[Rfam]
RNA sequence: CUAGUCGGUACACUUCCCGCUUACUCCUUUAGCCAUUCGUUGAGUUGAAUACGAAUGGCAAGGGAGUUUGUGCGAAGUAAGACUUG
Numbered sequence: 001c002u003a004g005u006c007g008g009u010a011c012a013c014u015u016c017c018c019g020c021u022u023a024c025u026c027c028u029u030u031a032g033c034c035a036u037u038c039g040u041u042g043a044g045u046u047g048a049a050u051a052c053g054a055a056u057g058g059c060a061a062g063g064g065a066g067u068u069u070g071u072g073c074g075a076a077g078u079a080a081g082a083c084u085u086g
Stems, first nucleotide, its partner, number of pairs: 001086001003084004009079003015075002018072003023067003027062002030060001032059004037054004
RNA: mir-2238 microRNA precursor family